[Rfam]
RNA: MIR1520 microRNA precursor family
RNA sequence: CUUUUAUUGAACGUUGACCGCCACGUGUCAUGCUUUUAUUAGACAUUAAUUUCGUGCACCUAAUUAACGUCAGCGUCCAAUAAAAGCGCAACACAUGACGGUCAACGUCUAAUAAAAACAUGACACGUGACGAUCAACUUUG
Numbered sequence: 001c002u003u004u005u006a007u008u009g010a011a012c013g014u015u016g017a018c019c020g021c022c023a024c025g026u027g028u029c030a031u032g033c034u035u036u037u038a039u040u041a042g043a044c045a046u047u048a049a050u051u052u053c054g055u056g057c058a059c060c061u062a063a064u065u066a067a068c069g070u071c072a073g074c075g076u077c078c079a080a081u082a083a084a085a086g087c088g089c090a091a092c093a094c095a096u097g098a099c100g101g102u103c104a105a106c107g108u109c110u111a112a113u114a115a116a117a118a119c120a121u122g123a124c125a126c127g128u129g130a131c132g133a134u135c136a137a138c139u140u141u142g
Base pairs, nucleotide, nucleotide: 020131022129023128025126026125029122030121031120034117035116036115038113039112040111041110042109043108044107